[Rfam]
The record is a 79-nucleotide RNA from Danio rerio, which matches "mir-30 microRNA precursor family" in Rfam. It is one of the family's seed sequences. This family consists of the mammalian microRNA (miRNA) precursor mir-30a. Animal miRNAs are transcribed as ~70nt precursors and subsequently processed by the Dicer enzyme to give a ~22nt product. In this case the mature sequence comes from both the 3' (miR-30) and 5' (mir-97-6) arms of the precursor. For this family Rfam cites "miRNPs: a novel class of ribonucleoproteins containing numerous microRNAs" (Mourelatos et al., Genes Dev, 2002). Rfam links the family to the GO terms RISC complex and gene silencing by miRNA. The family's consensus secondary structure was predicted with PFOLD. The organism belongs to Danio, within Eukaryota.
Nucleotides: 079
Base pairs, nucleotide, nucleotide: 002078004076006074008072010070011069012068013067014066015065016064017063018062023059024058025057026056027055028054029053030052031051032050
Number, partner (000 for none) and nucleotide at each position: 001000c002078u003000u004076g005000c006074a007000g008072u009000u010070g011069u012068a013067a014066a015065c016064a017063u018062u019000c020000c021000c022000g023059a024058c025057u026056g027055g028054a029053a030052g031051u032050u033000g034000u035000a036000a037000u038000g039000c040000a041000g042000a043000a044000a045000a046000u047000c048000u049000c050032a051031g052030c053029u054028u055027u056026c057025a058024g059023u060000c061000u062018g063017a064016u065015g066014u067013u068012u069011g070010c071000u072008g073000c074006u075000a076004c077000u078002g079000g